[Rfam]
RNA sequence: CUCUCACCAACAAUCUGUGUCUCCGCGCUCCUCCCUGCUUCGGUGGUGGAGUUGAGUGCGGCGGCAGUUCGACGACAAACGAAGCCACCUCAUCAAUAGGUGUCUAUCCGUCGACAGAUUGGAGAGCAAUACCUUCAAUGAAGCUAUAUCUCGUCGAUCCUGAGGUCUCCGUGAGCUCGGUGAAGCUGGAUGGCGACAUUGCAGUCGGCCGCCAAUUCUGAUCCAAAAUGCAUAAGCUCGUCGAGCCAGAUGAUGAGGGCGAACCAGGUGAAGCUACAAACU
Number, nucleotide and partner (000 for none) at each position: 001c000002u000003c000004u000005c000006a000007c000008c000009a000010a000011c121012a120013a119014u118015c117016u116017g115018u114019g065020u064021c063022u000023c061024c060025g059026c000027g057028c056029u055030c054031c051032u050033c049034c048035c000036u045037g044038c043039u000040u000041c000042g000043g038044u037045g036046g000047u000048g034049g033050a032051g031052u000053u000054g030055a029056g028057u027058g000059c025060g024061g023062c000063g021064g020065c019066a000067g000068u000069u000070c000071g000072a000073c113074g112075a111076c110077a000078a000079a000080c000081g104082a103083a000084g101085c100086c099087a000088c000089c000090u000091c000092a000093u000094c000095a000096a000097u000098a000099g086100g085101u084102g000103u082104c081105u000106a000107u000108c000109c000110g076111u075112c074113g073114a018115c017116a016117g015118a014119u013120u012121g011122g000123a000124g000125a000126g000127c000128a000129a000130u000131a000132c000133c201134u000135u000136c000137a000138a199139u198140g197141a000142a000143g194144c000145u000146a000147u000148a000149u000150c000151u000152c000153g000154u000155c000156g000157a191158u190159c189160c188161u000162g000163a187164g186165g000166u184167c000168u182169c180170c179171g000172u000173g000174a000175g000176c000177u000178c000179g170180g169181u000182g168183a000184a166185g000186c164187u163188g160189g159190a158191u157192g000193g000194c143195g000196a000197c140198a139199u138200u000201g133202c000203a000204g000205u000206c000207g275208g274209c273210c270211g269212c268213c267214a000215a000216u000217u000218c000219u000220g000221a000222u000223c259224c258225a000226a000227a000228a000229u000230g000231c252232a251233u000234a000235a000236g246237c245238u244239c243240g000241u000242c000243g239244a238245g237246c236247c000248a000249g000250a000251u232252g231253a000254u000255g000256a000257g000258g224259g223260c000261g000262a000263a000264c000265c000266a000267g213268g212269u211270g210271a000272a000273g209274c208275u207276a000277c000278a000279a000280a000281c000282u000

A member of the RNA family "A. fumigatus sRNA Afu_309" from Venturia nashicola, 282 nucleotides long. The literature on the family includes a 2008 paper in Nucleic Acids Res by Jochl et al., "Small ncRNA transcriptome analysis from Aspergillus fumigatus suggests a novel mechanism for regulation of protein synthesis". The match comes from Rfam's covariance-model search (63 bits). The organism belongs to Venturia, within Eukaryota.